[Rfam]
RNA sequence: CAACCUUCACGCGACUGGCGAUAGAGGGUGGCAGCGGGCGACACGCCCCGCCGUCACCGGCGAGGUGGAUCACCACCGGGAAGCGUGAAGUGCACCACGGCCCGAGGCUCAGCCUGAGCCGUGGUCGCAUCGACUCUGCCGUUCGCCUGGGCAACCCGC
Dot-bracket structure: ....((((((((..(([[[[[...........................................((((....))))..))..))))))))..............................................((((..]]]]]..))))......